The record is a 130-nucleotide sequence from Bacillus sp. SJS, which matches "SAM riboswitch aptamer (S box leader)" in Rfam. The base pairs follow the family's consensus structure, which is taken from published work. The match comes from Rfam's covariance-model search (73 bits). NCBI's taxonomy places the organism under Bacteria, Bacillati, Bacilli, Caryophanales, Bacillus. For this family Rfam cites "The S box regulon: a new global transcription termination control system for methionine and cysteine biosynthesis genes in gram-positive bacteria" (Grundy and Henkin, Mol Microbiol, 1998). From the family's description: The SAM riboswitch is found upstream of a number of genes which code for proteins involved in methionine or cysteine biosynthesis in Gram-positive bacteria.
RNA sequence: CUCUUAUCCCGAGCUGGCGGAGGGACAGGCCCUAUGAAGCCCAGCAACCUGCAAGACUUGAAAACGUAAUGUUUUCACUCAUGCAAAGGUGCUAACCUGACGCAAGGCUGUAGUCCUUGAGCGAUAAGAG
Numbered sequence: 001c002u003c004u005u006a007u008c009c010c011g012a013g014c015u016g017g018c019g020g021a022g023g024g025a026c027a028g029g030c031c032c033u034a035u036g037a038a039g040c041c042c043a044g045c046a047a048c049c050u051g052c053a054a055g056a057c058u059u060g061a062a063a064a065c066g067u068a069a070u071g072u073u074u075u076c077a078c079u080c081a082u083g084c085a086a087a088g089g090u091g092c093u094a095a096c097c098u099g100a101c102g103c104a105a106g107g108c109u110g111u112a113g114u115c116c117u118u119g120a121g122c123g124a125u126a127a128g129a130g
Base pairs, nucleotide, nucleotide: 001130002129003128004127005126006125007124008123013042016041017040018039022032023031024030026102029098043093044092045091046090048089049088050085051084052083053082103119104118105117106116107115